[Rfam]
Nucleotides: 086
Base pairs, nucleotide, nucleotide: 001086002085003084007054008053009052010051011050013046014045021038022037023036025034026033027032056076057075058074059073060072
Number, partner (000 for none) and nucleotide at each position: 001086u002085u003084g004000u005000a006000u007054u008053u009052u010051g011050a012000g013046u014045c015000c016000g017000u018000a019000a020000u021038u022037g023036a024000a025034u026033c027032a028000a029000a030000a031000g032027u033026g034025a035000a036023u037022c038021a039000a040000a041000a042000c043000a044000u045014g046013a047000a048000c049000a050011u051010c052009a053008a054007a055000a056076c057075u058074a059073c060072a061000u062000u063000u064000u065000g066000u067000a068000u069000g070000c071000u072060u073059g074058u075057g076056g077000a078000u079000a080000a081000c082000u083000u084003c085002a086001a